Purine riboswitch aptamer: a 102-nucleotide RNA sequence from Scopulibacillus darangshiensis.
[Rfam]
RNA sequence: AAGGAAAAGGAAAUUAUACCUCAUAUAUCAUUGGGAAUACGGCCCAACAGUUUCUACCCGGCAACCGUAAAUUGCUGGACUAUGGGGAAAGUUGAAGCGUUC
Numbered sequence: 001a002a003g004g005a006a007a008a009g010g011a012a013a014u015u016a017u018a019c020c021u022c023a024u025a026u027a028u029c030a031u032u033g034g035g036a037a038u039a040c041g042g043c044c045c046a047a048c049a050g051u052u053u054c055u056a057c058c059c060g061g062c063a064a065c066c067g068u069a070a071a072u073u074g075c076u077g078g079a080c081u082a083u084g085g086g087g088a089a090a091g092u093u094g095a096a097g098c099g100u101u102c
Stems, first nucleotide, its partner, number of pairs: 019087007031047005058078007
About this RNA
Pairs were carried over by alignment from the consensus structure, which is taken from published work.